Rfam assigns this 59-nucleotide RNA sequence from Pelargonium exstipulatum to the family "Plastid-ccsA-ndhD-1 3UTR RNA". The family is grouped with related families in Rfam's "Plastid-ccsA_ndhD 3UTR RNA clan". Plastid-ccsA-ndhD-1 is a non-coding RNA (ncRNA) recognised in plastids. For this family Rfam cites "Retrograde signaling in plants: A critical review focusing on the GUN pathway and beyond" (Richter et al., Plant Commun, 2023). The family's RNA type in Rfam is cis-regulatory element.
[Rfam]
RNA sequence: AAGCCGUUGAGAACCAUUUGAAUCAAGUUAUGUGUAGUGAUUCAAAUGGUUUUCACAAG
Numbered sequence: 001a002a003g004c005c006g007u008u009g010a011g012a013a014c015c016a017u018u019u020g021a022a023u024c025a026a027g028u029u030a031u032g033u034g035u036a037g038u039g040a041u042u043c044a045a046a047u048g049g050u051u052u053u054c055a056c057a058a059g
Base pairs, nucleotide, nucleotide: 008055009054010053011052012051013050014049015048016047017046018045019044020043021042022041023040024039025038